[Rfam]
This 86-nucleotide RNA sequence from Medicago truncatula belongs to the Rfam family "MIR2617 microRNA precursor family". Rfam links the family to the GO terms miRNA-mediated post-transcriptional gene silencing and RISC complex.

RNA sequence: AAGCAGUGUGACAUUCCCGUUUGUUGUUGAACUCUGAUUAUUUUAUUUAAUAUUUACAUAUUGGGAUAACGGGGUGUUACACUAAC
Numbered sequence: 001a002a003g004c005a006g007u008g009u010g011a012c013a014u015u016c017c018c019g020u021u022u023g024u025u026g027u028u029g030a031a032c033u034c035u036g037a038u039u040a041u042u043u044u045a046u047u048u049a050a051u052a053u054u055u056a057c058a059u060a061u062u063g064g065g066a067u068a069a070c071g072g073g074g075u076g077u078u079a080c081a082c083u084a085a086c
Stems, first nucleotide, its partner, number of pairs: 005083010016073006
Dot-bracket structure: ....((((((((((.((((((..............................................))))))))))))))))...